[Rfam]
RNA sequence: GGUCAAGAGUUCAGCCCACACGCCUCCGGACGCGGGCUGACGGCAACCGCGUUCCCGACACGGUGCCUUCCGGAGAAGACCUGGGCCACACCGUCCGGUGCGGUCACGCCGGGUCG
Number, nucleotide and partner (000 for none) at each position: 001g081002g080003u079004c078005a000006a000007g000008a000009g041010u000011u040012c039013a038014g037015c036016c035017c000018a000019c000020a000021c032022g031023c000024c000025u000026c000027c000028g000029g000030a000031c022032g021033c000034g000035g016036g015037c014038u013039g012040a011041c009042g067043g066044c065045a000046a000047c063048c062049g061050c000051g059052u058053u000054c000055c000056c000057g000058a052059c051060a000061c049062g048063g047064u000065g044066c043067c042068u000069u000070c000071c000072g000073g000074a000075g000076a000077a000078g004079a003080c002081c001082u000083g000084g105085g104086c103087c102088a000089c100090a099091c098092c097093g000094u000095c000096c000097g092098g091099u090100g089101c000102g087103g086104u085105c084106a000107c000108g000109c000110c000111g000112g000113g000114u000115c000116g000

The family of this 116-nucleotide sequence from Yimella sp. cx-51 is "SAM (S-adenosyl methionine) riboswitch aptamer". Rfam 15.1 lists 2,360 matches to the family in 1,305 species. It scores 58 bits against the family's covariance model. The source organism's lineage runs through Bacteria, Bacillati, Actinomycetota, Micrococcales and Yimella. A reference for the family is Weinberg et al. (2008), "The aptamer core of SAM-IV riboswitches mimics the ligand-binding site of SAM-I riboswitches", RNA. Rfam describes the family as follows. SAM-IV is a mRNA element that regulates gene expression via direct sensing of S-adenosylmethionine (SAM or AdoMet). SAM-IV riboswitches share conserved nucleotide positions with the previously described SAM-I riboswitches sequence analysis and molecular recognition experiments suggest that SAM-I and SAM-IV riboswitches share similar ligand binding sites, but have different scaffolds.